[Rfam]
RNA sequence: CUACUUUGCACUACAAGUGCACUGCAAGUGCACUUGAAAGUGCACUUGCAGUGCACUUGUAGUGCAAAGUGG
Numbered sequence: 001c002u003a004c005u006u007u008g009c010a011c012u013a014c015a016a017g018u019g020c021a022c023u024g025c026a027a028g029u030g031c032a033c034u035u036g037a038a039a040g041u042g043c044a045c046u047u048g049c050a051g052u053g054c055a056c057u058u059g060u061a062g063u064g065c066a067a068a069g070u071g072g
Base pairs, nucleotide, nucleotide: 001072002071003070004069006068007066008065009064010063011062012061013060014059015058016057019054021052022051023050024049025048026047027046
This 72-nucleotide sequence from Aquarana catesbeiana belongs to the Rfam family "mir-33 microRNA precursor family". Pairs were carried over by alignment from the consensus structure, which was predicted with PFOLD. The family has 73 seed sequences and 1,467 matches in Rfam 15.1. On this family, see Li et al., BMC Genomics 2009: "Direct sequencing and expression analysis of a large number of miRNAs in Aedes aegypti and a multi-species survey of novel mosquito miRNAs". NCBI's taxonomy places the organism under Eukaryota, Deuterostomia, Gnathostomata, Teleostomi, Aquarana.